RNA sequence: ACUAUAGUACGCACAGCGUACUAUGUUGAUCUUUAGAUCAGCUUCUUAUCUGCUUCGGCAAAUACAAACUUAGAUUGAUGUAUGCAGAGUAUGAAAUAUAGAAACGCAUGUCAAU
Numbered sequence: 001a002c003u004a005u006a007g008u009a010c011g012c013a014c015a016g017c018g019u020a021c022u023a024u025g026u027u028g029a030u031c032u033u034u035a036g037a038u039c040a041g042c043u044u045c046u047u048a049u050c051u052g053c054u055u056c057g058g059c060a061a062a063u064a065c066a067a068a069c070u071u072a073g074a075u076u077g078a079u080g081u082a083u084g085c086a087g088a089g090u091a092u093g094a095a096a097u098a099u100a101g102a103a104a105c106g107c108a109u110g111u112c113a114a115u
Base pairs, nucleotide, nucleotide: 001026002025004024005023006022007021008020009019010018011017012016051060052059053058074115075114076113077112078111079110083108084107085106092100093099
The family of this 115-nucleotide RNA is "Bacteriophage Diversity-Generating Retroelement RNA". The literature on the family includes a 2025 paper in Nature by Handa et al., "RNA control of reverse transcription in a diversity-generating retroelement". The family's consensus secondary structure is taken from published work.